[Rfam]
RNA sequence: AGCUGAGGUUUUCCUCGGCAGUUAACUGCAACCGGUUUUAUUUUUCCUCGGCAGUUAACUGCAGAAGAGGUA
Numbered sequence: 001a002g003c004u005g006a007g008g009u010u011u012u013c014c015u016c017g018g019c020a021g022u023u024a025a026c027u028g029c030a031a032c033c034g035g036u037u038u039u040a041u042u043u044u045u046c047c048u049c050g051g052c053a054g055u056u057a058a059c060u061g062c063a064g065a066a067g068a069g070g071u072a
Stems, first nucleotide, its partner, number of pairs: 012068002015065002018062012
Dot-bracket structure: ...........((.((.((((((((((((.....................)))))))))))).)).))....

A member of the RNA family "MIR2629 microRNA precursor family" from Medicago truncatula, 72 nucleotides long.
Lineage of the source: Eukaryota > Streptophyta > eudicotyledons > Papilionoideae > Medicago.
Pairs were carried over by alignment from the consensus structure, which was predicted with RNAalifold.
Its family is annotated with miRNA-mediated post-transcriptional gene silencing and RISC complex in the Gene Ontology.